[Rfam]
RNA sequence: CGAUGAGGUAGAGGUUGCGGGUGCUAGGAGUAUGCCGGGGGAGACGAGAGAGACGUCAGCGAAGCCGGGAGAAAGGAGCAGCCGCCGAAAUUCGGGCCGUUUCUCUUGCGUCCGGAUUGGGUCCGUUCCCGAACAGGGGCGGAACUGUCACUGCUGCCCUUCCAAGCAGCGGUGUUGCGCUAUCUUCAUG
Numbered sequence: 001c002g003a004u005g006a007g008g009u010a011g012a013g014g015u016u017g018c019g020g021g022u023g024c025u026a027g028g029a030g031u032a033u034g035c036c037g038g039g040g041g042a043g044a045c046g047a048g049a050g051a052g053a054c055g056u057c058a059g060c061g062a063a064g065c066c067g068g069g070a071g072a073a074a075g076g077a078g079c080a081g082c083c084g085c086c087g088a089a090a091u092u093c094g095g096g097c098c099g100u101u102u103c104u105c106u107u108g109c110g111u112c113c114g115g116a117u118u119g120g121g122u123c124c125g126u127u128c129c130c131g132a133a134c135a136g137g138g139g140c141g142g143a144a145c146u147g148u149c150a151c152u153g154c155u156g157c158c159c160u161u162c163c164a165a166g167c168a169g170c171g172g173u174g175u176u177g178c179g180c181u182a183u184c185u186u187c188a189u190g
Stems, first nucleotide, its partner, number of pairs: 006185006017085004022080004033070001035068004089118009099109002119146002122143008149174009
RNA: Lysine riboswitch aptamer
Organism: Paenibacillus sp. HGF7